[Rfam]
RNA sequence: AAGGAACAACAGGGGUGCUCGCGUAAGCGGGCUGAGAGUAAGCUGUAUCGCUUUAACCCAUAACCUGAUUUGGAUAAUGCCAACGUAGGGAGAUAUAGAAGUAAAGUG
Numbered sequence: 001a002a003g004g005a006a007c008a009a010c011a012g013g014g015g016u017g018c019u020c021g022c023g024u025a026a027g028c029g030g031g032c033u034g035a036g037a038g039u040a041a042g043c044u045g046u047a048u049c050g051c052u053u054u055a056a057c058c059c060a061u062a063a064c065c066u067g068a069u070u071u072g073g074a075u076a077a078u079g080c081c082a083a084c085g086u087a088g089g090g091a092g093a094u095a096u097a098g099a100a101g102u103a104a105a106g107u108g
Base pairs, nucleotide, nucleotide: 006096008094010092012059013058014057017032018031019030020029021028040053041052042051043050064089065088066087067086070083071082072081073080
Rfam assigns this 108-nucleotide sequence from Lachnospiraceae bacterium 5_1_57FAA to the family "TPP riboswitch aptamer (THI element)".
Its family is annotated with thiamine pyrophosphate binding in the Gene Ontology.
It scores 62 bits against the family's covariance model.
The organism belongs to Lachnospiraceae, within Bacteria.
Vitamin B(1) in its active form thiamin pyrophosphate (TPP) is an essential coenzyme that is synthesised by coupling of pyrimidine and thiazole moieties in bacteria.